The family of this 117-nucleotide RNA sequence from Pseudomonas entomophila is "Pseudomon-groES RNA". The family's RNA type in Rfam is cis-regulatory element.
RNA sequence: GUAGUGGUCACCGCAAGGUUUCCGGUGAGUUCACCGGGCAUGACACACGGGGUUCGCUGAAGGCGGGCCCUGACCGGCAACGCCGGACCGAAUCAACCCGCCGGUGCUGACACCGGC
Number, nucleotide and partner (000 for none) at each position: 001g000002u000003a000004g000005u000006g000007g000008u000009c000010a019011c018012c017013g000014c000015a000016a000017g012018g011019u010020u000021u038022c037023c036024g035025g034026u033027g000028a000029g000030u000031u000032c000033a026034c025035c024036g023037g022038g021039c000040a000041u000042g000043a000044c000045a000046c000047a000048c072049g071050g070051g069052g068053u067054u066055c065056g064057c000058u000059g000060a000061a000062g000063g000064c056065g055066g054067g053068c052069c051070c050071u049072g048073a000074c086075c085076g084077g083078c000079a000080a000081c000082g000083c077084c076085g075086g074087a000088c000089c000090g000091a000092a000093u000094c000095a000096a000097c000098c000099c000100g117101c116102c115103g114104g113105u112106g000107c000108u000109g000110a000111c000112a105113c104114c103115g102116g101117c100